This 109-nucleotide sequence from Sphingomonas sp. Leaf412 belongs to the Rfam family "TPP riboswitch aptamer (THI element)". Vitamin B(1) in its active form thiamin pyrophosphate (TPP) is an essential coenzyme that is synthesised by coupling of pyrimidine and thiazole moieties in bacteria.

RNA sequence: CGUCAUCCCCGGGGGAGCGCCGCGCCGCGCUUGAGAGGGAGGCAGGAGCCUCCGACCCGCCGAACCUGAUCCGGUUGACACCGGCGUAGGGAGUGGAAGCGGCCUUCCG
Numbered sequence: 001c002g003u004c005a006u007c008c009c010c011g012g013g014g015g016a017g018c019g020c021c022g023c024g025c026c027g028c029g030c031u032u033g034a035g036a037g038g039g040a041g042g043c044a045g046g047a048g049c050c051u052c053c054g055a056c057c058c059g060c061c062g063a064a065c066c067u068g069a070u071c072c073g074g075u076u077g078a079c080a081c082c083g084g085c086g087u088a089g090g091g092a093g094u095g096g097a098a099g100c101g102g103c104c105u106u107c108c109g
Stems, first nucleotide, its partner, number of pairs: 006096002009093001010059004015053001016031005039052004065090004071084004
Source information:
A search with the family's covariance model found it, with a score of 56 bits.